RNA sequence: CCCGCCGUACGGCCGGCGGUAGCCUAGGAGCGCGUGCAUCGCUGGUAACGGUGAUGUUCGAAGCCGCUCCGACAAUGUAGCCCGUAAGCACGCUGCACGGCGAGGUGUUGCGUGGAGGCUCCGAGCAGCGAUGGGGCUAAGGCG
Numbered sequence: 001c002c003c004g005c006c007g008u009a010c011g012g013c014c015g016g017c018g019g020u021a022g023c024c025u026a027g028g029a030g031c032g033c034g035u036g037c038a039u040c041g042c043u044g045g046u047a048a049c050g051g052u053g054a055u056g057u058u059c060g061a062a063g064c065c066g067c068u069c070c071g072a073c074a075a076u077g078u079a080g081c082c083c084g085u086a087a088g089c090a091c092g093c094u095g096c097a098c099g100g101c102g103a104g105g106u107g108u109u110g111c112g113u114g115g116a117g118g119c120u121c122c123g124a125g126c127a128g129c130g131a132u133g134g135g136g137c138u139a140a141g142g143c144g
Stems, first nucleotide, its partner, number of pairs: 002019006028069005033060002036057009083088001089114004098105001118137006
Group II catalytic intron D1-D4-7: a 144-nucleotide RNA sequence from Caballeronia concitans. Pairs were carried over by alignment from the consensus structure. NCBI's taxonomy places the organism under Bacteria, Pseudomonadota, Betaproteobacteria, Burkholderiales, Caballeronia.